Record summary: The family of this 83-nucleotide RNA from Helianthus annuus is "small nucleolar RNA snoR114". Taxonomically the source falls in Helianthus (Eukaryota, Viridiplantae, Euphyllophyta, Magnoliopsida).
RNA sequence: GAGCUGUGAUGACAAGCCUCUCAUGAUGGUUGGGUCUAUCAUAACAACUUCUUAUUGAAGAAAUAACAGGCCUUUCUGAGCUC
Numbered sequence: 001g002a003g004c005u006g007u008g009a010u011g012a013c014a015a016g017c018c019u020c021u022c023a024u025g026a027u028g029g030u031u032g033g034g035u036c037u038a039u040c041a042u043a044a045c046a047a048c049u050u051c052u053u054a055u056u057g058a059a060g061a062a063a064u065a066a067c068a069g070g071c072c073u074u075u076c077u078g079a080g081c082u083c
Stems, first nucleotide, its partner, number of pairs: 001083004
A search with the family's covariance model found it, with a score of 47 bits. The family's consensus secondary structure was predicted with RNAalifold. The family's RNA type in Rfam is C/D-box small nucleolar RNA. Rfam links the family to the GO terms RNA processing and nucleolus.